[Rfam]
RNA: Plastid-psbA-4 3UTR RNA
RNA sequence: GAACGGAUCAAUACCCAACUUCUUGUUCUAUCAAGAAGUUGGGUAUUGAUCU
Numbered sequence: 001g002a003a004c005g006g007a008u009c010a011a012u013a014c015c016c017a018a019c020u021u022c023u024u025g026u027u028c029u030a031u032c033a034a035g036a037a038g039u040u041g042g043g044u045a046u047u048g049a050u051c052u
Stems, first nucleotide, its partner, number of pairs: 005052009017040002020037006